[Rfam]
RNA sequence: AGUGUAAUAGGCGAUGGAGUUCUCCUAAACUUCCUUUCGGGCUGAUGGCUCCUACCAAUGA
Numbered sequence: 001a002g003u004g005u006a007a008u009a010g011g012c013g014a015u016g017g018a019g020u021u022c023u024c025c026u027a028a029a030c031u032u033c034c035u036u037u038c039g040g041g042c043u044g045a046u047g048g049c050u051c052c053u054a055c056c057a058a059u060g061a
Stems, first nucleotide, its partner, number of pairs: 010025002013022001016052006033041002
Shown here is a 61-nucleotide RNA sequence from Parageobacillus caldoxylosilyticus, a member of the family "Fluoride riboswitch aptamer (crcB RNA motif)".
A search with the family's covariance model found it, with a score of 45 bits.